[Rfam]
Nucleotides: 272
Stems, first nucleotide, its partner, number of pairs: 018126008026066003029062003034057003037052005074115002084108002087105003137193002141188005148180004153175005158169002198265001200263001201260005214249004222243002226236004
Number, partner (000 for none) and nucleotide at each position: 001000c002000u003000c004000u005000c006000u007000u008000c009000c010000u011000u012000c013000a014000c015000c016000a017000c018126g019125g020124a021123c022122c023121u024120g025119u026066g027065c028064c029062c030061a031060g032000a033000c034057g035056u036055c037052c038051g039050c040049u041048g042000c043000u044000c045000g046000u047000u048041c049040a050039g051038c052037g053000u054000c055036g056035a057034u058000a059000u060031c061030u062029g063000c064028g065027g066026c067000a068000g069000c070000u071000c072000g073000a074115u075114a076000c077000c078000c079000c080000c081000c082000a083000u084108g085107g086000a087105a088104u089103c090000a091000c092000c093000a094000a095000a096000c097000c098000a099000u100000u101000g102000u103089g104088g105087u106000g107085u108084c109000c110000c111000u112000c113000c114075u115074a116000u117000c118000g119025a120024c121023a122022g123021g124020u125019c126018c127000a128000a129000g130000a131000u132000a133000g134000a135000u136000c137193g138192a139000u140000g141188c142187c143186u144185g145184c146000u147000g148180g149179g150178c151177c152000a153175u154174g155173u156172u157171c158169g159168c160000c161000g162000u163000c164000a165000a166000a167000a168159g169158c170000u171157g172156a173155g174154c175153g176000a177151g178150g179149u180148u181000c182000c183000g184145g185144c186143a187142g188141g189000a190000c191000u192138u193137u194000c195000g196000a197000a198265g199000a200263g201260a202259u203258u204257a205256c206000a207000u208000u209000c210000c211000a212000c213000u214249c215248c216247c217246c218000u219000u220000u221000u222243c223242c224000a225000a226236g227235a228234u229233c230000g231000u232000c233229g234228a235227u236226c237000g238000a239000u240000g241000a242223g243222g244000u245000u246217g247216g248215g249214g250000c251000a252000a253000a254000c255000c256205g257204u258203a259202a260201u261000u262000c263200c264000g265198c266000u267000a268000c269000a270000u271000c272000u